A member of the RNA family "Betaproteobacteria toxic small RNA" from Simplicispira hankyongi, 65 nucleotides long. Rfam describes the family as follows. Overexpression in amino aid rich medium attenuates growth, suggesting role in repressing amino acid intake and metabolism. The literature on the family includes a 2012 paper in Genome Res by Kimelman et al., "A vast collection of microbial genes that are toxic to bacteria". Pairs were carried over by alignment from the consensus structure, which was predicted with WAR.

[Rfam]
RNA sequence: UGUCUCCUCCAUCUCCUCAAAACGGAUGGAUUAAGCCCCCGGCUUUGCGGCCAGGGGCUUUUUUU
Dot-bracket structure: .......((((((...........))))))....(((((.((........)).))))).......
Numbered sequence: 001u002g003u004c005u006c007c008u009c010c011a012u013c014u015c016c017u018c019a020a021a022a023c024g025g026a027u028g029g030a031u032u033a034a035g036c037c038c039c040c041g042g043c044u045u046u047g048c049g050g051c052c053a054g055g056g057g058c059u060u061u062u063u064u065u
Stems, first nucleotide, its partner, number of pairs: 008030006035058005041052002